[Rfam]
RNA: mir-731 microRNA precursor family
RNA sequence: CGGUGUUUUUUCCUCAAUGACACGUUUUCUCCCGGAUUGCUGAAAACAGCAAACGCAACCGGGAAUUUCGUGUCAGCCAUGAAUUACACCU
Numbered sequence: 001c002g003g004u005g006u007u008u009u010u011u012c013c014u015c016a017a018u019g020a021c022a023c024g025u026u027u028u029c030u031c032c033c034g035g036a037u038u039g040c041u042g043a044a045a046a047c048a049g050c051a052a053a054c055g056c057a058a059c060c061g062g063g064a065a066u067u068u069c070g071u072g073u074c075a076g077c078c079a080u081g082a083a084u085u086a087c088a089c090c091u
Base pairs, nucleotide, nucleotide: 002090003089004088005087006086010083011082012081018075019074020073021072022071023070024069030064031063032062033061034060035059037058038057039056040055